[Rfam]
MIR390 microRNA precursor family: a 100-nucleotide RNA from Durio zibethinus. On this family, see Gustafson et al., Nucleic Acids Res 2005: "ASRP: the Arabidopsis Small RNA Project Database". Rfam 15.1 lists 649 matches to the family in 206 species. Rfam links the family to the GO terms miRNA-mediated post-transcriptional gene silencing and RISC complex.
RNA sequence: UGGGAUAAUCUGUAAAGCUCAGGAGGGAUAGCGCCAUCUCAAGGAGUUUUUCAACUACCAUCUGUGGCGCUAUCCAUCCUGAGUUUCAUGGGUUCUUCCU
Numbered sequence: 001u002g003g004g005a006u007a008a009u010c011u012g013u014a015a016a017g018c019u020c021a022g023g024a025g026g027g028a029u030a031g032c033g034c035c036a037u038c039u040c041a042a043g044g045a046g047u048u049u050u051u052c053a054a055c056u057a058c059c060a061u062c063u064g065u066g067g068c069g070c071u072a073u074c075c076a077u078c079c080u081g082a083g084u085u086u087c088a089u090g091g092g093u094u095c096u097u098c099c100u
Stems, first nucleotide, its partner, number of pairs: 010091001016085009026075010